[Rfam]
RNA sequence: CAUACCCUGCUGUGUGCGUGUAAUGUCUAUAUGUUUUGAGCCAACACAUUUACUGCGGGAGCUUGGCUCUGGUUACAGCAUGUAUGCCCUUGUUCGUUGGGGGACACAUAAAAUAAUCAGGAGAGCACCCACCUGCCGCGGGCAGGUUCAAAACAGAGACAGUACGGCAUAGUGGGGAUUGG
Numbered sequence: 001c002a003u004a005c006c007c008u009g010c011u012g013u014g015u016g017c018g019u020g021u022a023a024u025g026u027c028u029a030u031a032u033g034u035u036u037u038g039a040g041c042c043a044a045c046a047c048a049u050u051u052a053c054u055g056c057g058g059g060a061g062c063u064u065g066g067c068u069c070u071g072g073u074u075a076c077a078g079c080a081u082g083u084a085u086g087c088c089c090u091u092g093u094u095c096g097u098u099g100g101g102g103g104a105c106a107c108a109u110a111a112a113a114u115a116a117u118c119a120g121g122a123g124a125g126c127a128c129c130c131a132c133c134u135g136c137c138g139c140g141g142g143c144a145g146g147u148u149c150a151a152a153a154c155a156g157a158g159a160c161a162g163u164a165c166g167g168c169a170u171a172g173u174g175g176g177g178a179u180u181g182g
Stems, first nucleotide, its partner, number of pairs: 002180001005177011017166003032155004037150006057130003061126004068120001070119006082107002087103005
6S / SsrS RNA: a 182-nucleotide RNA sequence from Sporomusa acidovorans. The literature on the family includes a 2005 paper in Nat Struct Mol Biol by Trotochaud and Wassarman, "A highly conserved 6S RNA structure is required for regulation of transcription". It scores 102 bits against the family's covariance model. Rfam describes the family as follows. E. coli 6S RNA was the first non coding RNA to be sequenced, but its function was unknown until recently. It consists of 184 nucleotides that fold into an extended hairpin structure with a large single-stranded internal bulge. The organism belongs to Sporomusa acidovorans, within Bacteria. The family has 150 seed sequences and 5,006 matches in Rfam 15.1. By type it is a non-coding RNA gene. The family's consensus secondary structure is taken from published work.